About this RNA:
The family of this 118-nucleotide sequence from Muntiacus reevesi is "Small nucleolar RNA SNORA20". The family is grouped with related families in Rfam's "SNORA20 clan". Rfam links the family to the GO terms RNA processing and nucleolus. Rfam describes the family as follows. ACA20 is a member of the H/ACA class of snoRNA that guide the sites of modification of uridines to pseudouridines.
RNA sequence: UUCCCCAUUGAUUUGUGUGACAGUUUCUCCAUGAUAUGUGCAGUUAUAUGCAUGGGGUAAAACAAAGUACAUUGAGAUGGAGUAACCAUUUCAUCUCUUCUGCAUGGUCUAGAUAUUG
Numbered sequence: 001u002u003c004c005c006c007a008u009u010g011a012u013u014u015g016u017g018u019g020a021c022a023g024u025u026u027c028u029c030c031a032u033g034a035u036a037u038g039u040g041c042a043g044u045u046a047u048a049u050g051c052a053u054g055g056g057g058u059a060a061a062a063c064a065a066a067g068u069a070c071a072u073u074g075a076g077a078u079g080g081a082g083u084a085a086c087c088a089u090u091u092c093a094u095c096u097c098u099u100c101u102g103c104a105u106g107g108u109c110u111a112g113a114u115a116u117u118g
Base pairs, nucleotide, nucleotide: 003057004056005055006054007053008052015044016042017041018040019039022035024034025033063106064105067103068102069101074097075096076095077094078093079092080091081090082089083088